A member of the RNA family "mir-146 microRNA precursor family" from Microcaecilia unicolor, 93 nucleotides long. The match comes from Rfam's covariance-model search (71 bits). Taxonomically the source falls in Microcaecilia (Eukaryota, Bilateria, Sarcopterygii, Gymnophiona).

RNA sequence: AUGAGGUCCAAGCUUUGAGAACUGAAUUUCAUUGGUUGUAAAUGAAUCUUUGCUAGACCCGUGGAACUCAGUUCUGUAGCUUGGAUAUCACAG
Numbered sequence: 001a002u003g004a005g006g007u008c009c010a011a012g013c014u015u016u017g018a019g020a021a022c023u024g025a026a027u028u029u030c031a032u033u034g035g036u037u038g039u040a041a042a043u044g045a046a047u048c049u050u051u052g053c054u055a056g057a058c059c060c061g062u063g064g065a066a067c068u069c070a071g072u073u074c075u076g077u078a079g080c081u082u083g084g085a086u087a088u089c090a091c092a093g
Base pairs, nucleotide, nucleotide: 008084009083011081012080013079018075019074020073021072022071023070024069025068034059035058036057
Dot-bracket structure: .......((.(((....((((((((........(((....................)))........))))))))...))).)).........